[Rfam]
RNA: Small nucleolar RNA SNORA32
RNA sequence: GGUAAUUACCAAGAUUUUUAGAAUGCAGUUUCUCAUUUGCCAGGGAAAUGACCAUAAAAUAAUUUCCCACUAGAUUUUUUUAUCUGUUACCUUGCUAGCAAGCAGUCUAUUGGGAACAUUU
Numbered sequence: 001g002g003u004a005a006u007u008a009c010c011a012a013g014a015u016u017u018u019u020a021g022a023a024u025g026c027a028g029u030u031u032c033u034c035a036u037u038u039g040c041c042a043g044g045g046a047a048a049u050g051a052c053c054a055u056a057a058a059a060u061a062a063u064u065u066c067c068c069a070c071u072a073g074a075u076u077u078u079u080u081u082a083u084c085u086g087u088u089a090c091c092u093u094g095c096u097a098g099c100a101a102g103c104a105g106u107c108u109a110u111u112g113g114g115a116a117c118a119u120u121u
Base pairs, nucleotide, nucleotide: 002052003051005049006048009045010044025040026039027038028037066114067113068112069111073107074106075105076104085100086099087098